[Rfam]
RNA sequence: UCCACCGUGAGGUGGAAUCUGAAGGAAGGCGGCGGCAAAUCUCCGGCCCGAGGAACACAAACCUCAUGUGAGGCUAGCGACAGUUGGGUGAGUCUGCGUAGCAAGACAAAGCCCAUGCUACCGAAGGCUGUCGGGAGUAGAUGGGGCGGGUAUAUGGAGAGAAAGACAACGUU
Numbered sequence: 001u002c003c004a005c006c007g008u009g010a011g012g013u014g015g016a017a018u019c020u021g022a023a024g025g026a027a028g029g030c031g032g033c034g035g036c037a038a039a040u041c042u043c044c045g046g047c048c049c050g051a052g053g054a055a056c057a058c059a060a061a062c063c064u065c066a067u068g069u070g071a072g073g074c075u076a077g078c079g080a081c082a083g084u085u086g087g088g089u090g091a092g093u094c095u096g097c098g099u100a101g102c103a104a105g106a107c108a109a110a111g112c113c114c115a116u117g118c119u120a121c122c123g124a125a126g127g128c129u130g131u132c133g134g135g136a137g138u139a140g141a142u143g144g145g146g147c148g149g150g151u152a153u154a155u156g157g158a159g160a161g162a163a164a165g166a167c168a169a170c171g172u173u
Base pairs, nucleotide, nucleotide: 001016002015003014004013005012006011028173029172030171031170036165040160041159042158043157044156045155046151047150048149049148050147062146063145064144065143066142067141073138074137075136079132080131081130082129083128084127086114087113088112089111092107093106094105095104

The family of this 173-nucleotide RNA from Paenalicyclobacillus ferrooxydans is "Group II catalytic intron D1-D4-3". About the family: Group II introns are found in rRNA, tRNA and mRNA of organelles in fungi, plants and protists, and also in mRNA in bacteria.